[Rfam]
RNA: Fluoride riboswitch aptamer (crcB RNA motif)
Organism: Clostridiaceae bacterium 14S0207
RNA sequence: AUUUUUAUAGGUGAUGGGGUUCACCUUAAACUGCUUACGCUAACGACUCCUACUUUUUA
Dot-bracket structure: .........[[[[..((((((]]]].......((....))....)))))).........